[Rfam]
RNA sequence: CCCCUGUCUUUCCUCCCUGAGACAGGGCCUUAAGUGUGAUAUUAAGGCGAUUCCCCCCGGUUUUACUCCCCUUUAGCCGGGGGCUUUUUUU
Dot-bracket structure: ..((((((............))))))(((((((........)))))))......((((((((............)))))))).........
Description
Shown here is a 91-nucleotide RNA sequence from Nitrosomonas oligotropha, a member of the family "Burkholderia RNA 7 (anti-hemB)". A search with the family's covariance model found it, with a score of 59 bits. NCBI's taxonomy places the organism under Bacteria, Pseudomonadati, Nitrosomonadales, Nitrosomonadaceae, Nitrosomonas. It is annotated as a small RNA. This RNA motif was identified by computational search in b-proteobacteria Burkholderia. Co-purified with Hfq, expression confirmed by Northern blot. Rfam 15.1 lists 479 matches to the family in 458 species.